Enterobacterial sRNA STnc230: an 83-nucleotide sequence from Salmonella enterica. Taxonomically the source falls in Salmonella enterica subsp. enterica serovar Choleraesuis (Bacteria, Pseudomonadati, Pseudomonadota, Gammaproteobacteria).
RNA sequence: UUAUUACCAUUAUCCUGGCCCUGAUAAAAAGUACAAUGACAAUAUCAAAAGUCUCCCAUUGCUGGGAGACGUUUUGAUCAGUU
Numbered sequence: 001u002u003a004u005u006a007c008c009a010u011u012a013u014c015c016u017g018g019c020c021c022u023g024a025u026a027a028a029a030a031g032u033a034c035a036a037u038g039a040c041a042a043u044a045u046c047a048a049a050a051g052u053c054u055c056c057c058a059u060u061g062c063u064g065g066g067a068g069a070c071g072u073u074u075u076g077a078u079c080a081g082u083u
Stems, first nucleotide, its partner, number of pairs: 046076005051070007